RNA sequence: CCUUCGCUGAUGAGUCACUCCUUGACUUUCGUUCUCCUGAGAUUGCUGAAGCAACUCCUGUGCCGUCUGAGGAGG
Numbered sequence: 001c002c003u004u005c006g007c008u009g010a011u012g013a014g015u016c017a018c019u020c021c022u023u024g025a026c027u028u029u030c031g032u033u034c035u036c037c038u039g040a041g042a043u044u045g046c047u048g049a050a051g052c053a054a055c056u057c058c059u060g061u062g063c064c065g066u067c068u069g070a071g072g073a074g075g
Stems, first nucleotide, its partner, number of pairs: 001075003005071001

The record is a 75-nucleotide RNA sequence from Xiphorhynchus elegans, which matches "Small nucleolar RNA SNORD59" in Rfam. By type it is a C/D-box small nucleolar RNA. NCBI's taxonomy places the organism under Eukaryota, Opisthokonta, Archelosauria, Neoaves, Xiphorhynchus. Gene Ontology terms of the family: RNA processing and nucleolus. The literature on the family includes a 2002 paper in Mol Cell Biol by Galardi et al., "Purified box C/D snoRNPs are able to reproduce site-specific 2'-O-methylation of target RNA in vitro". Its Rfam clan is "SNORD59 clan".